[Rfam]
RNA sequence: CUCCUGUCUCAUGAUGAUCCCCACUGCCCUGAGCUGUUGUGAUGCAGGCUUCAAAGUAAACGCUCUGAAGCAAUGGAGCAAGGC
Dot-bracket structure: ..(((..(((.................................................................)))..))).
Numbered sequence: 001c002u003c004c005u006g007u008c009u010c011a012u013g014a015u016g017a018u019c020c021c022c023a024c025u026g027c028c029c030u031g032a033g034c035u036g037u038u039g040u041g042a043u044g045c046a047g048g049c050u051u052c053a054a055a056g057u058a059a060a061c062g063c064u065c066u067g068a069a070g071c072a073a074u075g076g077a078g079c080a081a082g083g084c
Stems, first nucleotide, its partner, number of pairs: 003083003008078003
Annotation: Shown here is an 84-nucleotide RNA from Rattus norvegicus, a member of the family "Small nucleolar RNA SNORD105". Rfam links the family to the GO terms RNA processing and nucleolus. The pairing is the family consensus, mapped onto this sequence. Its Rfam clan is "SNORD105 clan". A reference for the family is Vitali et al. (2003), "Identification of 13 novel human modification guide RNAs", Nucleic Acids Res. U105 belongs to the C/D family of snoRNAs. It is encoded in an intron of the Suppressor of SWI4 1 homolog (Ssf-1) (Peter Pan homolog) gene. and is predicted to guide 2'O-ribose methylation of residue U799 of the small 18S rRNA subunit.